[Rfam]
RNA: LOOT RNA
RNA sequence: GACCUAAACCAAACGCAAGUUUGGCAUGGUCGUCAAAUCAACAAAGAGAAACAGCUCGUCAUGAGUACUUCUCUUUGUUGUCAUUGCUGGAAACGGCAGUGGGUAGCUCUCGGGCUGCC
Numbered sequence: 001g002a003c004c005u006a007a008a009c010c011a012a013a014c015g016c017a018a019g020u021u022u023g024g025c026a027u028g029g030u031c032g033u034c035a036a037a038u039c040a041a042c043a044a045a046g047a048g049a050a051a052c053a054g055c056u057c058g059u060c061a062u063g064a065g066u067a068c069u070u071c072u073c074u075u076u077g078u079u080g081u082c083a084u085u086g087c088u089g090g091a092a093a094c095g096g097c098a099g100u101g102g103g104u105a106g107c108u109c110u111c112g113g114g115c116u117g118c119c
Stems, first nucleotide, its partner, number of pairs: 001031004009024006039080011054066004082101008102119006